A member of the RNA family "ZMP/ZTP riboswitch aptamer (pfl RNA motif)" from Paenibacillus contaminans, 81 nucleotides long. Pairs were carried over by alignment from the consensus structure, which is taken from published work. The match comes from Rfam's covariance-model search (63 bits). Lineage of the source: Bacteria > Bacillati > Bacillota > Bacilli > Paenibacillus.

[Rfam]
Nucleotides: 081
Stems, first nucleotide, its partner, number of pairs: 005050001007048006015040002017069004025036004058076001060074003
Number, partner (000 for none) and nucleotide at each position: 001000u002000a003000a004000a005050c006000u007048g008047c009046g010045c011044g012043u013000a014000a015040c016039u017069g018068g019067c020066g021000g022000a023000a024000c025036g026035u027034g028033g029000a030000c031000g032000a033028c034027c035026a036025c037000g038000g039016g040015g041000g042000a043012g044011c045010g046009c047008g048007c049000u050005g051000g052000a053000c054000a055000u056000a057000a058076u059000a060074g061073c062072c063000g064000u065000a066020c067019g068018c069017c070000u071000g072062g073061g074060c075000g076058a077000a078000a079000g080000u081000a